[Rfam]
Nucleotides: 122
Stems, first nucleotide, its partner, number of pairs: 007068003011064002015058002020055002022052001023049006069095008097117001099120001103115003
Number, partner (000 for none) and nucleotide at each position: 001000g002000a003000a004000a005000a006000a007068g008067c009066u010000g011064u012063c013000u014000a015058g016057g017000g018000u019000u020055c021054c022052g023049u024048u025047g026046a027045u028044c029000a030000u031000u032000g033000u034000a035000u036000u037000a038000c039000a040000c041000a042000a043000c044028g045027a046026u047025u048024a049023a050000g051000u052022c053000u054021g055020g056000u057016c058015c059000g060000a061000g062000a063012g064011a065000g066009a067008g068007c069095g070094u071093a072092u073091g074090g075089a076088a077000a078000a079000u080000g081000u082000g083000u084000u085000g086000a087000u088076u089075u090074c091073c092072a093071u094070a095069u096000a097117c098000a099120c100000g101000g102000a103115a104114g105113g106000a107000u108000a109000a110000a111000a112000g113105c114104c115103u116000g117097g118000g119000a120099g121000a122000c